[Rfam]
RNA: Small nucleolar RNA SNORD18
Organism: Helobdella robusta
RNA sequence: UGGUAAUGAUGAUAUCAUUGGUCCGUGUUUCUGAAAUGUAUGUCAGACAACCUUAACCAUAUCUGAAUCA
Numbered sequence: 001u002g003g004u005a006a007u008g009a010u011g012a013u014a015u016c017a018u019u020g021g022u023c024c025g026u027g028u029u030u031c032u033g034a035a036a037u038g039u040a041u042g043u044c045a046g047a048c049a050a051c052c053u054u055a056a057c058c059a060u061a062u063c064u065g066a067a068u069c070a
Stems, first nucleotide, its partner, number of pairs: 001070004